[Rfam]
Rfam assigns this 183-nucleotide RNA sequence from Lachnoclostridium sp. An76 to the family "Glycine riboswitch aptamer". Lineage of the source: Bacteria > Clostridia > Lachnospirales > Lachnospiraceae > Lachnoclostridium. From the family's description: This family represents the bacterial glycine riboswitch.
RNA sequence: AAGAUAAACUCAGGAGAGUCUUUUCCCCGCAAGUAUCUGCAGGACAGGUCAUACCGGGGGAGAGCGCCGAAGGUGUAAACGGCGUCAGGAAUGGAAGGAGCAGCGGUCCGGGGCAGAGCGGGACGGCUGGGAUCUCCAUGCGGAUGCCGUGAGUCUCUCAGGCAAAAGGAUGGAGGUAUAAAG
Numbered sequence: 001a002a003g004a005u006a007a008a009c010u011c012a013g014g015a016g017a018g019u020c021u022u023u024u025c026c027c028c029g030c031a032a033g034u035a036u037c038u039g040c041a042g043g044a045c046a047g048g049u050c051a052u053a054c055c056g057g058g059g060g061a062g063a064g065c066g067c068c069g070a071a072g073g074u075g076u077a078a079a080c081g082g083c084g085u086c087a088g089g090a091a092u093g094g095a096a097g098g099a100g101c102a103g104c105g106g107u108c109c110g111g112g113g114c115a116g117a118g119c120g121g122g123a124c125g126g127c128u129g130g131g132a133u134c135u136c137c138a139u140g141c142g143g144a145u146g147c148c149g150u151g152a153g154u155c156u157c158u159c160a161g162g163c164a165a166a167a168g169g170a171u172g173g174a175g176g177u178a179u180a181a182a183g
Stems, first nucleotide, its partner, number of pairs: 007177001009175003013171001020064010066163003069159002073157001075155001079150008